Overview:
A member of the RNA family "FMN riboswitch aptamer (RFN element)" from Ramlibacter algicola, 149 nucleotides long.

RNA sequence: GGGCGUCUUCAGGGCGGGGUGGAAGUCCCCACCGGCGGUAGGUGGCGAAAGCCACGAGCCCGCGAGCGCCCGCGACGCGAGUCGCAGGGUCAGCAGACCCGGUCGAAUGCCGGGGCCGACGGUCACAGUCCGGAUGGAAGAAGAUUCGC
Dot-bracket structure: ..(.((((((......(((.......))).[[((((((...................[[))))..((.........................))...(((((.......)))))]])).(((.....]]))).......)))))).)..